RNA sequence: UUGGUCCAUCACGACUGGCGUUCGGAUGGGUACCCAUCAGGGAGUGAUCACCUCCACGUUUCGGCCGUUCGCCUGGGCCGAACCG
Numbered sequence: 001u002u003g004g005u006c007c008a009u010c011a012c013g014a015c016u017g018g019c020g021u022u023c024g025g026a027u028g029g030g031u032a033c034c035c036a037u038c039a040g041g042g043a044g045u046g047a048u049c050a051c052c053u054c055c056a057c058g059u060u061u062c063g064g065c066c067g068u069u070c071g072c073c074u075g076g077g078c079c080g081a082a083c084c085g
Stems, first nucleotide, its partner, number of pairs: 003053002008048005015041002017073004026037004062080005

Rfam assigns this 85-nucleotide RNA sequence from Frigoribacterium sp. CG_9.8 to the family "ZMP/ZTP riboswitch aptamer (pfl RNA motif)".
Rfam links the family to the GO terms regulation of purine nucleotide biosynthetic process and one-carbon metabolic process.
The source organism's lineage runs through Bacteria, Bacillati, Actinomycetes, Micrococcales and Frigoribacterium.
A search with the family's covariance model found it, with a score of 52 bits.